A member of the RNA family "mir-87 microRNA precursor family" from Pogonomyrmex barbatus, 74 nucleotides long.
The source organism's lineage runs through Eukaryota, Metazoa, Pterygota, Apocrita and Pogonomyrmex.
RNA sequence: UACAGGCGGGCCUGACUCUUUGCUCGGCCCGUACUUUUAAUGUUGGGUGAGCAAAGUUUCAGGUGUGUUUGUGU
Number, nucleotide and partner (000 for none) at each position: 001u000002a072003c071004a070005g069006g068007c067008g000009g000010g064011c063012c062013u061014g060015a059016c000017u000018c056019u055020u054021u053022g000023c051024u050025c049026g048027g000028c047029c046030c045031g000032u000033a000034c000035u000036u000037u000038u000039a000040a000041u000042g000043u000044u000045g030046g029047g028048u026049g025050a024051g023052c000053a021054a020055a019056g018057u000058u000059u015060c014061a013062g012063g011064u010065g000066u000067g007068u006069u005070u004071g003072u002073g000074u000